Rfam assigns this 213-nucleotide RNA from Kosmotoga arenicorallina to the family "HNH endonuclease-associated RNA and ORF (HEARO) RNA". A search with the family's covariance model found it, with a score of 167 bits. The literature on the family includes a 2009 paper in Nature by Weinberg et al., "Exceptional structured noncoding RNAs revealed by bacterial metagenome analysis". By type it is a non-coding RNA gene. The organism belongs to Kosmotoga arenicorallina, within Bacteria.
RNA sequence: GUCAACUACCCACCACCUAUAGAGGUGGGGGCUUGUAGAAAAAGCCCUAGUUGACUACCCUCAGCCACUGAAAUGGCUACGUUAGACUGGUCAUGACACCCUGAAAUGCUGCUCAAGUUUCAGGCUCUGUCAUCUGUCAUUAAACAGUCCUGAGGGGUAGGGACAGUGUGGCAGGCAUAACAAGCCAGUCUAACAUGGGGAUGAGCAUCUUAC
Numbered sequence: 001g002u003c004a005a006c007u008a009c010c011c012a013c014c015a016c017c018u019a020u021a022g023a024g025g026u027g028g029g030g031g032c033u034u035g036u037a038g039a040a041a042a043a044g045c046c047c048u049a050g051u052u053g054a055c056u057a058c059c060c061u062c063a064g065c066c067a068c069u070g071a072a073a074u075g076g077c078u079a080c081g082u083u084a085g086a087c088u089g090g091u092c093a094u095g096a097c098a099c100c101c102u103g104a105a106a107u108g109c110u111g112c113u114c115a116a117g118u119u120u121c122a123g124g125c126u127c128u129g130u131c132a133u134c135u136g137u138c139a140u141u142a143a144a145c146a147g148u149c150c151u152g153a154g155g156g157g158u159a160g161g162g163a164c165a166g167u168g169u170g171g172c173a174g175g176c177a178u179a180a181c182a183a184g185c186c187a188g189u190c191u192a193a194c195a196u197g198g199g200g201a202u203g204a205g206c207a208u209c210u211u212a213c
Stems, first nucleotide, its partner, number of pairs: 001055008010031002013028002016025002032044003058199003063078005081194011096130002100124008108209001110207006133175008144167002147164005153158001